[Rfam]
mir-574 microRNA precursor family: a 77-nucleotide sequence from Myotis myotis. The match comes from Rfam's covariance-model search (82 bits). Pairs were carried over by alignment from the consensus structure, which was predicted with RNAalifold.

Nucleotides: 077
Stems, first nucleotide, its partner, number of pairs: 008073008017064004024057006032049004
Number, partner (000 for none) and nucleotide at each position: 001000a002000g003000g004000c005000c006000u007000g008073g009072a010071g011070a012069g013068a014067g015066a016000a017064g018063c019062a020061g021000g022000g023000u024057c025056u026055g027054a028053u029052c030000c031000a032049u033048a034047g035046c036000c037000u038000u039000c040000a041000u042000g043000g044000c045000a046035g047034c048033u049032g050000u051000u052029g053028a054027u055026c056025a057024g058000c059000a060000c061020u062019u063018g064017c065000c066015u067014c068013u069012c070011u071010c072009u073008c074000u075000c076000c077000g